[Rfam]
RNA sequence: AUAAUCUGGAAAGAGAGAGGGUGAGAGUCCUCGACUCGGGUUCGGCACCAUUGCAGGAGCAAUGGUGAACAUCACGGAUGUGAUGGCCCCGCAGGGGUGGAGGGCAGGAGCCCGACAUAAUCCCUCUCUCUCCGCCA
Numbered sequence: 001a002u003a004a005u006c007u008g009g010a011a012a013g014a015g016a017g018a019g020g021g022u023g024a025g026a027g028u029c030c031u032c033g034a035c036u037c038g039g040g041u042u043c044g045g046c047a048c049c050a051u052u053g054c055a056g057g058a059g060c061a062a063u064g065g066u067g068a069a070c071a072u073c074a075c076g077g078a079u080g081u082g083a084u085g086g087c088c089c090c091g092c093a094g095g096g097g098u099g100g101a102g103g104g105c106a107g108g109a110g111c112c113c114g115a116c117a118u119a120a121u122c123c124c125u126c127u128c129u130c131u132c133c134g135c136c137a
Stems, first nucleotide, its partner, number of pairs: 015128007022120001032099002035097002041093001043091002050063004070085006
RtT RNA: a 137-nucleotide sequence from Mariprofundus erugo. Rfam describes the family as follows. This family represents a bacterial cis-regulatory element known as RtT RNA. The exact function of RtT is unknown although it is thought that it may be involved in changing the cellular response in relation to amino acid starvation. For this family Rfam cites "A novel RNA product of the tyrT operon of Escherichia coli" (Bosl and Kersten, Nucleic Acids Res, 1991). Gene Ontology term of the family: cellular response to amino acid starvation. It scores 49 bits against the family's covariance model. The organism belongs to Mariprofundus, within Bacteria.